RNA sequence: GGGAUUCAACAAGCGCCAGAGCUUGGCCGCCGGACCGGAACGCCGAAGGACGACAGUCCGACGGGGAUGCGCGGCUCAAGCUGACGAGGUGGAGGUGUUCGAAAUAUUCGGCGGGGACCUCCCGGUACUGCAUCACACCGUAAGCGAAUUUCGAAAAACGGACAGGCGACUGGCCGCACAAACGAGUUCGCGGAUGCUCC
Numbered sequence: 001g002g003g004a005u006u007c008a009a010c011a012a013g014c015g016c017c018a019g020a021g022c023u024u025g026g027c028c029g030c031c032g033g034a035c036c037g038g039a040a041c042g043c044c045g046a047a048g049g050a051c052g053a054c055a056g057u058c059c060g061a062c063g064g065g066g067a068u069g070c071g072c073g074g075c076u077c078a079a080g081c082u083g084a085c086g087a088g089g090u091g092g093a094g095g096u097g098u099u100c101g102a103a104a105u106a107u108u109c110g111g112c113g114g115g116g117a118c119c120u121c122c123c124g125g126u127a128c129u130g131c132a133u134c135a136c137a138c139c140g141u142a143a144g145c146g147a148a149u150u151u152c153g154a155a156a157a158a159c160g161g162a163c164a165g166g167c168g169a170c171u172g173g174c175c176g177c178a179c180a181a182a183c184g185a186g187u188u189c190g191c192g193g194a195u196g197c198u199c200c
Stems, first nucleotide, its partner, number of pairs: 020082007091122005099111004123140004145190007159176003163172003
The family of this 200-nucleotide sequence from Saccharibacillus brassicae is "glmS glucosamine-6-phosphate activated ribozyme aptamer". A search with the family's covariance model found it, with a score of 74 bits.